[Rfam]
Shown here is an 89-nucleotide RNA sequence from Flintibacter faecis, a member of the family "c-di-GMP-I riboswitch aptamer".
The base pairs follow the family's consensus structure, which is taken from published work.
From the family's description: GEMM was predicted in a large-scale screen for bacterial structured RNA regulatory elements.
RNA sequence: UAACUGAAACGGCAAACCGGAGGAAACGCCGGGGCGCAAAGCCAUGGGGGCUAAAGCGGCACCGCCGCCAUGCCAGCCCGGCCACCACA
Dot-bracket structure: ...........((...((((.(....).))))...))...(((..((((((....((((.....))))...)))..)))))).......
Numbered sequence: 001u002a003a004c005u006g007a008a009a010c011g012g013c014a015a016a017c018c019g020g021a022g023g024a025a026a027c028g029c030c031g032g033g034g035c036g037c038a039a040a041g042c043c044a045u046g047g048g049g050g051c052u053a054a055a056g057c058g059g060c061a062c063c064g065c066c067g068c069c070a071u072g073c074c075a076g077c078c079c080g081g082c083c084a085c086c087a088c089a
Stems, first nucleotide, its partner, number of pairs: 012037002017032004022027001041082003046079003049074003056068004